[Rfam]
RNA sequence: ACCGGACCCGGCUCGCCGGGUGGCUCGGCCCGGCGCCUAUCCCCGGGACAACC
Number, nucleotide and partner (000 for none) at each position: 001a000002c000003c000004g000005g000006a021007c020008c019009c018010g017011g016012c000013u000014c000015g000016c011017c010018g009019g008020g007021u006022g000023g000024c000025u000026c000027g000028g000029c047030c046031c045032g044033g043034c000035g000036c000037c000038u000039a000040u000041c000042c000043c033044c032045g031046g030047g029048a000049c000050a000051a000052c000053c000
sul1 RNA: a 53-nucleotide sequence from Sphingopyxis alaskensis. The source organism's lineage runs through Bacteria, Pseudomonadati, Sphingomonadales, Sphingopyxidaceae and Sphingopyxis alaskensis. The base pairs follow the family's consensus structure, which is taken from published work.